[Rfam]
RNA sequence: UGAAGUUACAAUACAAUUCCCGAUAGGAUUCAUAAUUAUUGUGAAGAUGCCUUGUAACCAAAUAAUUUUAAUUAAUGGGGGAAUAUAUAAUG
Numbered sequence: 001u002g003a004a005g006u007u008a009c010a011a012u013a014c015a016a017u018u019c020c021c022g023a024u025a026g027g028a029u030u031c032a033u034a035a036u037u038a039u040u041g042u043g044a045a046g047a048u049g050c051c052u053u054g055u056a057a058c059c060a061a062a063u064a065a066u067u068u069u070a071a072u073u074a075a076u077g078g079g080g081g082a083a084u085a086u087a088u089a090a091u092g
Stems, first nucleotide, its partner, number of pairs: 017083005025052003029045005058078002
Rfam assigns this 92-nucleotide RNA from Ligilactobacillus agilis to the family "SAM-III riboswitch aptamer (SMK box)".
Its family is annotated with regulation of translational initiation and methionine adenosyltransferase activity in the Gene Ontology.
NCBI's taxonomy places the organism under Bacteria, Bacillati, Lactobacillales, Lactobacillaceae, Ligilactobacillus agilis.